[Rfam]
RNA: SAM riboswitch aptamer (S box leader)
RNA sequence: UUCUUAUCCAGAGAGGUGGAGGGACUGGCCCUAUGAAGCCCGGCAACCGAUUUUUUAUAAAACACGGUGCCAAUUCCAACAGAGUAUAUUGCUCUGAAAGAUAAGUA
Numbered sequence: 001u002u003c004u005u006a007u008c009c010a011g012a013g014a015g016g017u018g019g020a021g022g023g024a025c026u027g028g029c030c031c032u033a034u035g036a037a038g039c040c041c042g043g044c045a046a047c048c049g050a051u052u053u054u055u056u057a058u059a060a061a062a063c064a065c066g067g068u069g070c071c072a073a074u075u076c077c078a079a080c081a082g083a084g085u086a087u088a089u090u091g092c093u094c095u096g097a098a099a100g101a102u103a104a105g106u107a
Base pairs, nucleotide, nucleotide: 001107003105004104005103006102007101008100013041015040016039017038021031022030023029026078027077028076042071043070044069045068047067048066049063051061052060075099080096081095082094083093084092085091